RNA: Glycine riboswitch aptamer
RNA sequence: AACUUCAUCGCGGGAGAGACCGGCGCUUGCGCCGGCGCCGAAGGCGAAACCGCCCCGGAAACGCUCAGGCCAAAGGACCGCGACGAGGCA
Numbered sequence: 001a002a003c004u005u006c007a008u009c010g011c012g013g014g015a016g017a018g019a020c021c022g023g024c025g026c027u028u029g030c031g032c033c034g035g036c037g038c039c040g041a042a043g044g045c046g047a048a049a050c051c052g053c054c055c056c057g058g059a060a061a062c063g064c065u066c067a068g069g070c071c072a073a074a075g076g077a078c079c080g081c082g083a084c085g086a087g088g089c090a
Base pairs, nucleotide, nucleotide: 006085008083009082010081011080012079013078020035021034022033023032037070038069039068040066041065044064045063046062050058051057